The family of this 33-nucleotide RNA from Chryseobacterium sp. RU37D is "DUF805b RNA".

RNA sequence: AUGGCGGAAUCCGAAAAGCCGUUAGAGUAGGAA
Numbered sequence: 001a002u003g004g005c006g007g008a009a010u011c012c013g014a015a016a017a018g019c020c021g022u023u024a025g026a027g028u029a030g031g032a033a
Base pairs, nucleotide, nucleotide: 003020004019005018010032011031012030